Annotation: The family of this 76-nucleotide RNA sequence from Alligator mississippiensis is "Mammalian CPEB3 ribozyme".
RNA sequence: ACUGCAAUUUCUAGGCCAUGGCAAAAGCGGUCACAGACAGGCCAUGUCAGAUUCCAAAGAAUCUGUGAAUUCUGCU
Numbered sequence: 001a002c003u004g005c006a007a008u009u010u011c012u013a014g015g016c017c018a019u020g021g022c023a024a025a026a027g028c029g030g031u032c033a034c035a036g037a038c039a040g041g042c043c044a045u046g047u048c049a050g051a052u053u054c055c056a057a058a059g060a061a062u063c064u065g066u067g068a069a070u071u072c073u074g075c076u
Base pairs, nucleotide, nucleotide: 014043015042016040020076021075022074023073025071026070027038048065049064050063051062052061053060054059
Dot-bracket structure: .............[[[...((((.(((..........).].]]....(((((((....)))))))....)).))))

About the family: The mammalian CPEB3 ribozyme is a self cleaving RNA located in the second intron of the CPEB3 gene which belongs to a family of genes regulating messenger RNA polyadenylation. This ribozyme is highly conserved and found only in mammals. The CPEB3 ribozyme is structurally and biochemically related to the human hepatitis delta virus (HDV) ribozyme and the HDV ribozyme is proposed to have arisen from the human transcriptome. There is currently only one other known self cleaving ribozyme in mammals, the CoTC motif.
A search with the family's covariance model found it, with a score of 40 bits.
Lineage of the source: Eukaryota > Eumetazoa > Teleostomi > Euteleostomi > Alligator.
The base pairs follow the family's consensus structure, which is taken from published work.